[Rfam]
RNA sequence: GGCCGAAGCCUCCCGGUGGAUGGCUCGGCUCGGGCACCGAAGAAGGGCGCGGCAAGCAGCGAAAUGCUCGGGUGAGGCGCAAGCAGCCGUUGACCCCGAGGUCCCCUAAUGGGAUAUCCUGCCGGGUUUCCGGCGCUCCCGGUUUAUAACUGGGAGUGGGAACCCCCCGAACGGAAACAUCUUAGUAGGGGGAGGAAAAGAAAUCAAUUGAGAUCCCCUGAGUAGGGGCGACCGAAAGGGGGACAGCCCAAACUAAACCUGCCGAUGAUAAGUCGGUGGGGAUGUGGUGUUACGACCUCUAGCCUGAGGUUCGACCUCGGCUUUCCUAACCUAUCUAGCCGAACUCCCCUGGAACGGGGGGCCAUAGAGGGUGAAAGCCCCGUAGGCUAAAGAUAGGUGGAAAGUGGCUAGAGGUAGAGUACCAUCCCCUGGUUUGGGGGUGGGAAGUUAGGGGACACGUGCCUCUAAGGCUAAAUAUGUCCCGAGACCGAUAGCAAACUAAGUACCGUGAGGGAAAGCUGAAAAGAACCCCGGAAGGGGGAGUGCAAAGAGCCUGAAACCGGGUGGUUAUACAG
Number, nucleotide and partner (000 for none) at each position: 001g000002g000003c000004c000005g000006a000007a569008g568009c567010c566011u000012c564013c563014c562015g561016g560017u000018g000019g000020a000021u000022g554023g519024c518025u000026c000027g489028g488029c486030u485031c484032g483033g482034g481035c479036a478037c000038c000039g000040a000041a000042g000043a000044a107045g106046g105047g104048c061049g060050c059051g000052g000053c000054a000055a000056g000057c000058a000059g050060c049061g048062a000063a000064a000065u000066g000067c100068u099069c098070g097071g096072g095073u000074g000075a000076g088077g087078c086079g000080c000081a000082a000083g000084c000085a000086g078087c077088c076089g000090u000091u000092g000093a000094c000095c072096c071097c070098g069099a068100g067101g000102u000103c000104c047105c046106c045107u044108a000109a000110u000111g120112g119113g118114a000115u000116a000117u000118c113119c112120u111121g000122c000123c000124g000125g000126g000127u000128u000129u000130c000131c000132g000133g000134c000135g000136c156137u155138c154139c153140c152141g151142g150143u149144u000145u000146a000147u000148a000149a143150c142151u141152g140153g139154g138155a137156g136157u000158g000159g000160g000161a000162a000163c194164c192165c191166c190167c189168c188169g000170a000171a000172c000173g000174g181175a180176a000177a000178c000179a000180u175181c174182u000183u000184a000185g000186u000187a000188g168189g167190g166191g165192g164193a000194g163195g000196a000197a000198a000199a000200g000201a000202a000203a000204u211205c210206a000207a000208u000209u000210g205211a204212g000213a000214u000215c242216c241217c240218c239219u238220g000221a000222g000223u000224a000225g233226g232227g000228g000229c000230g000231a000232c226233c225234g000235a000236a000237a000238g219239g218240g217241g216242g215243a000244c000245a472246g471247c470248c469249c000250a000251a000252a000253c287254u286255a285256a000257a000258c000259c000260u000261g000262c000263c275264g274265a273266u272267g000268a000269u000270a000271a000272g266273u265274c264275g263276g000277u000278g000279g000280g000281g000282a000283u000284g000285u255286g254287g253288u000289g000290u000291u000292a000293c000294g000295a000296c000297c000298u000299c411300u410301a409302g408303c000304c000305u000306g000307a000308g000309g000310u000311u000312c000313g000314a000315c000316c000317u000318c000319g000320g000321c000322u403323u402324u401325c400326c000327u000328a000329a000330c000331c000332u000333a000334u000335c000336u000337a000338g387339c386340c385341g000342a000343a000344c360345u000346c359347c358348c357349c356350u000351g000352g000353a000354a000355c000356g349357g348358g347359g346360g344361g000362c000363c367364a000365u000366a000367g363368a000369g381370g380371g379372u000373g000374a000375a000376a000377g000378c000379c371380c370381c369382g000383u000384a000385g340386g339387c338388u000389a000390a000391a000392g000393a000394u000395a000396g000397g000398u000399g000400g325401a324402a323403a322404g000405u000406g000407g000408c302409u301410a300411g299412a000413g000414g000415u000416a000417g000418a000419g000420u000421a000422c443423c442424a441425u440426c439427c438428c437429c000430u000431g000432g000433u000434u000435u000436g000437g428438g427439g426440g425441u424442g423443g422444g000445a000446a000447g000448u000449u000450a466451g465452g464453g463454g462455a000456c000457a000458c000459g000460u000461g000462c454463c453464u452465c451466u450467a000468a000469g248470g247471c246472u245473a000474a000475a000476u000477a000478u036479g035480u000481c034482c033483c032484g031485a030486g029487a000488c028489c027490g000491a000492u000493a000494g000495c000496a000497a000498a000499c000500u000501a000502a000503g000504u000505a000506c513507c512508g000509u000510g000511a000512g507513g506514g000515a000516a000517a000518g024519c023520u000521g000522a000523a000524a000525a000526g000527a000528a000529c000530c000531c000532c000533g000534g000535a000536a000537g000538g000539g000540g000541g000542a000543g000544u000545g000546c000547a000548a000549a000550g000551a000552g000553c000554c022555u000556g000557a000558a000559a000560c016561c015562g014563g013564g012565u000566g010567g009568u008569u007570a000571u000572a000573c000574a000575g000

A member of the RNA family "Archaeal large subunit ribosomal RNA" from Sulfolobus acidocaldarius, 575 nucleotides of a longer RNA. It is one of the family's seed sequences. Its family is annotated with ribosome and structural constituent of ribosome in the Gene Ontology.